RNA sequence: CUGCCUCUAAAUAUAUAAUUAUUAUGGGGAUAAACGGACGGCUAGUCGAAUAUUUUUAUAAAUAUUACGGCAACAUCCUCAAAUUGCGGGAACAUCCUAAAGCUCUUGAUACCAAGCCAUUUUGGAAACAUAAUGGUGGCCGAGUUAAUAGCCCUGGGUAAGGUAAAAACUCAAGAGAUGUAACAAUGGACAAUCCGCAGCCAAGUCCUAAGGUAAAUAUUUAUAAUAUUUAUUAUGGAUGCAGUUCAGAGACUAGACGGGGAUGGGCUAGAUUUAUAAUAAAUCUGGCUUAAGGUAUAGUCCAGCCCUUUGUGAAAGCUUUGG
Numbered sequence: 001c002u003g004c005c006u007c008u009a010a011a012u013a014u015a016u017a018a019u020u021a022u023u024a025u026g027g028g029g030a031u032a033a034a035c036g037g038a039c040g041g042c043u044a045g046u047c048g049a050a051u052a053u054u055u056u057u058a059u060a061a062a063u064a065u066u067a068c069g070g071c072a073a074c075a076u077c078c079u080c081a082a083a084u085u086g087c088g089g090g091a092a093c094a095u096c097c098u099a100a101a102g103c104u105c106u107u108g109a110u111a112c113c114a115a116g117c118c119a120u121u122u123u124g125g126a127a128a129c130a131u132a133a134u135g136g137u138g139g140c141c142g143a144g145u146u147a148a149u150a151g152c153c154c155u156g157g158g159u160a161a162g163g164u165a166a167a168a169a170c171u172c173a174a175g176a177g178a179u180g181u182a183a184c185a186a187u188g189g190a191c192a193a194u195c196c197g198c199a200g201c202c203a204a205g206u207c208c209u210a211a212g213g214u215a216a217a218u219a220u221u222u223a224u225a226a227u228a229u230u231u232a233u234u235a236u237g238g239a240u241g242c243a244g245u246u247c248a249g250a251g252a253c254u255a256g257a258c259g260g261g262g263a264u265g266g267g268c269u270a271g272a273u274u275u276a277u278a279a280u281a282a283a284u285c286u287g288g289c290u291u292a293a294g295g296u297a298u299a300g301u302c303c304a305g306c307c308c309u310u311u312g313u314g315a316a317a318g319c320u321u322u323g324g
Stems, first nucleotide, its partner, number of pairs: 074265005080259001085199006095190003200245002205240004213233007249303001251302005267289009312319002